Shown here is a 100-nucleotide sequence from Shimia thalassica, a member of the family "Pyrrolysine insertion sequence mttB". The base pairs follow the family's consensus structure, which was predicted with CMfinder.
[Rfam]
RNA sequence: AUGACCGAUGCCAAACUGCCCGACAUGCAGGCCGGAUGGGAGCAGAUGUGCUCAAACGUUCUCGCCGGGGUUGCCGGUUUGAACAUGGUCUAUGAAUCCG
Numbered sequence: 001a002u003g004a005c006c007g008a009u010g011c012c013a014a015a016c017u018g019c020c021c022g023a024c025a026u027g028c029a030g031g032c033c034g035g036a037u038g039g040g041a042g043c044a045g046a047u048g049u050g051c052u053c054a055a056a057c058g059u060u061c062u063c064g065c066c067g068g069g070g071u072u073g074c075c076g077g078u079u080u081g082a083a084c085a086u087g088g089u090c091u092a093u094g095a096a097u098c099c100g
Stems, first nucleotide, its partner, number of pairs: 003012001034061002077098001079096002
Dot-bracket structure: ..(........).....................((........................))...............(.((..............)).)..
By type it is a cis-regulatory element. It scores 48 bits against the family's covariance model.